[Rfam]
RNA: Archaeal RNase P
Organism: candidate division MSBL1 archaeon SCGC-AAA259J03
RNA sequence: GCGAGCCGGUGGGCGGCUCUCGGGGCUCUCCUGAGGAAACACCCUCCACCGGACGGGACCGCAGGGUCGAAAAGAUCCCGGUUGAGAGACCGGACCCUGGAACAGAAACGAUACCCGCCAGUUCGGAUUGCGAUGAUGCGGCUGACGCUGAGGACGGGCUGGUCAGGGAUGGAACGGCCAAUCUGCGGGGUGCAAGGGCAAAAUAACCGCCGAUGAACUCCCGUCGGAGGCGGGUGGUAGCCCGCUAAGCUGAAUGCCGCCUAGAACAGAAGAGGGGUUACGGCCGGCACGC
Numbered sequence: 001g002c003g004a005g006c007c008g009g010u011g012g013g014c015g016g017c018u019c020u021c022g023g024g025g026c027u028c029u030c031c032u033g034a035g036g037a038a039a040c041a042c043c044c045u046c047c048a049c050c051g052g053a054c055g056g057g058a059c060c061g062c063a064g065g066g067u068c069g070a071a072a073a074g075a076u077c078c079c080g081g082u083u084g085a086g087a088g089a090c091c092g093g094a095c096c097c098u099g100g101a102a103c104a105g106a107a108a109c110g111a112u113a114c115c116c117g118c119c120a121g122u123u124c125g126g127a128u129u130g131c132g133a134u135g136a137u138g139c140g141g142c143u144g145a146c147g148c149u150g151a152g153g154a155c156g157g158g159c160u161g162g163u164c165a166g167g168g169a170u171g172g173a174a175c176g177g178c179c180a181a182u183c184u185g186c187g188g189g190g191u192g193c194a195a196g197g198g199c200a201a202a203a204u205a206a207c208c209g210c211c212g213a214u215g216a217a218c219u220c221c222c223g224u225c226g227g228a229g230g231c232g233g234g235u236g237g238u239a240g241c242c243c244g245c246u247a248a249g250c251u252g253a254a255u256g257c258c259g260c261c262u263a264g265a266a267c268a269g270a271a272g273a274g275g276g277g278u279u280a281c282g283g284c285c286g287g288c289a290c291g292c
Stems, first nucleotide, its partner, number of pairs: 001292003005288005010282002012261006021033005038279003042276005047192004052225006059188005064078005079092005093183002098180003114168003117163008138148002196243004207233005